[Rfam]
RNA: FMN riboswitch aptamer (RFN element)
RNA sequence: GCGCGUUCUCAGGGCGGGGUGAAAUUCCCCACCGGCGGUAACGGGAGGCUGAUACCCAGCGCCCGAAGCCCGCGAGCGGCCCCGGAUUGUCCGGGGUGUCAGCAGAUCUGGUGCGACUCCAGAGCCGACGGUCACAGUCCGGAUGGAAGAGAGCGACA
Numbered sequence: 001g002c003g004c005g006u007u008c009u010c011a012g013g014g015c016g017g018g019g020u021g022a023a024a025u026u027c028c029c030c031a032c033c034g035g036c037g038g039u040a041a042c043g044g045g046a047g048g049c050u051g052a053u054a055c056c057c058a059g060c061g062c063c064c065g066a067a068g069c070c071c072g073c074g075a076g077c078g079g080c081c082c083c084g085g086a087u088u089g090u091c092c093g094g095g096g097u098g099u100c101a102g103c104a105g106a107u108c109u110g111g112u113g114c115g116a117c118u119c120c121a122g123a124g125c126c127g128a129c130g131g132u133c134a135c136a137g138u139c140c141g142g143a144u145g146g147a148a149g150a151g152a153g154c155g156a157c158a
Stems, first nucleotide, its partner, number of pairs: 004155007017029003031138002033127002035073004068125002076103002107123005129141003